[Rfam]
RNA sequence: CAGAGGGUAAUAUGAGCAAAGGCCUUGUGAAGUCGGUCAGGUUAGGAAUAAAGCAGCCGUAGCAUUGUCCCUUUGGGUUGUAUUGCCCAUUUUUUAUU
Numbered sequence: 001c002a003g004a005g006g007g008u009a010a011u012a013u014g015a016g017c018a019a020a021g022g023c024c025u026u027g028u029g030a031a032g033u034c035g036g037u038c039a040g041g042u043u044a045g046g047a048a049u050a051a052a053g054c055a056g057c058c059g060u061a062g063c064a065u066u067g068u069c070c071c072u073u074u075g076g077g078u079u080g081u082a083u084u085g086c087c088c089a090u091u092u093u094u095u096a097u098u
Stems, first nucleotide, its partner, number of pairs: 005088010017075006023067001026064003034059004042051003